[Rfam]
RNA sequence: AAGAAUAUGAUGCCGAGUCCUGCUCUUUCACAAUCAGGGAGCAGGUACGGGGGACGAUUUACUGGGGUGAAUUUGCUAGAUUUACGCAUUAGGGAAUACCUCUUCCCGAACCCGUCAACUAACCUCGGAGGCUAUAAGGAGGAAAUGU
Numbered sequence: 001a002a003g004a005a006u007a008u009g010a011u012g013c014c015g016a017g018u019c020c021u022g023c024u025c026u027u028u029c030a031c032a033a034u035c036a037g038g039g040a041g042c043a044g045g046u047a048c049g050g051g052g053g054a055c056g057a058u059u060u061a062c063u064g065g066g067g068u069g070a071a072u073u074u075g076c077u078a079g080a081u082u083u084a085c086g087c088a089u090u091a092g093g094g095a096a097u098a099c100c101u102c103u104u105c106c107c108g109a110a111c112c113c114g115u116c117a118a119c120u121a122a123c124c125u126c127g128g129a130g131g132c133u134a135u136a137a138g139g140a141g142g143a144a145a146u147g148u
Stems, first nucleotide, its partner, number of pairs: 012132003019045010048127005055064002065113003074088003092107004
RNA: c-di-AMP riboswitch aptamer (ydaO/yuaA leader)
Organism: Paenibacillus larvae